[Rfam]
Description: Shown here is a 65-nucleotide RNA sequence from Chiloscyllium punctatum, a member of the family "mir-33 microRNA precursor family". On this family, see Li et al., BMC Genomics 2009: "Direct sequencing and expression analysis of a large number of miRNAs in Aedes aegypti and a multi-species survey of novel mosquito miRNAs".

RNA sequence: CUGUGGUGCAUUGUAGUUGCAUUGCAUGUGCCAGCGAUGUGCAGUGUGUCUGCAGUGCAGUACAG
Numbered sequence: 001c002u003g004u005g006g007u008g009c010a011u012u013g014u015a016g017u018u019g020c021a022u023u024g025c026a027u028g029u030g031c032c033a034g035c036g037a038u039g040u041g042c043a044g045u046g047u048g049u050c051u052g053c054a055g056u057g058c059a060g061u062a063c064a065g
Stems, first nucleotide, its partner, number of pairs: 001065004006061001007059010019047001021045007
The organism belongs to Chiloscyllium, within Eukaryota. Rfam links the family to the GO terms gene silencing by miRNA and RISC complex.